[Rfam]
RNA sequence: GGACCCAAUCCUUUACUCGGAUCGUCCGGCACGUUCCUGCCGGUGAGGGGACACAUCA
Dot-bracket structure: ........(((((((..........((((((......)))))))))))))........
RNA: msiK RNA
Organism: Streptomyces liangshanensis